[Rfam]
RNA sequence: GUCAUACUACGGUGCAAUACCCUGCAAAGUAAACGAUGACCCAUGGUGAACUUCAAGGUAAAAUGACUAUCAAAUUGAAAAAUUGCUGCUGACCUGGGGCUUUGCCCCCGGGUCAGUUUUCUUU
Numbered sequence: 001g002u003c004a005u006a007c008u009a010c011g012g013u014g015c016a017a018u019a020c021c022c023u024g025c026a027a028a029g030u031a032a033a034c035g036a037u038g039a040c041c042c043a044u045g046g047u048g049a050a051c052u053u054c055a056a057g058g059u060a061a062a063a064u065g066a067c068u069a070u071c072a073a074a075u076u077g078a079a080a081a082a083u084u085g086c087u088g089c090u091g092a093c094c095u096g097g098g099g100c101u102u103u104g105c106c107c108c109c110g111g112g113u114c115a116g117u118u119u120u121c122u123u124u
Stems, first nucleotide, its partner, number of pairs: 001040005010035002014030002041048001057071004088117011